[Rfam]
RNA: Repression of heat shock gene expression (ROSE) element
Organism: Sphingomonas sp. AX6
RNA sequence: CCGGAUGCGCAACGCGGUCCGGCGGGACGAGAGCAUCGGCUCGUUUCCGAUGCUCCUUGUGCUCAGAUUGCUCAUUGGAGGAUUUGGAUAUGAGGA
Number, nucleotide and partner (000 for none) at each position: 001c022002c021003g020004g019005a018006u017007g000008c016009g015010c000011a000012a000013c000014g000015c009016g008017g006018u005019c004020c003021g002022g001023c000024g000025g000026g000027a000028c000029g000030a000031g055032a054033g053034c052035a051036u050037c049038g048039g047040c000041u000042c000043g000044u000045u000046u000047c039048c038049g037050a036051u035052g034053c033054u032055c031056c094057u093058u092059g091060u090061g089062c000063u087064c086065a085066g084067a083068u082069u081070g000071c080072u079073c078074a000075u000076u000077g000078g073079a072080g071081g069082a068083u067084u066085u065086g064087g063088a000089u061090a060091u059092g058093a057094g056095g000096a000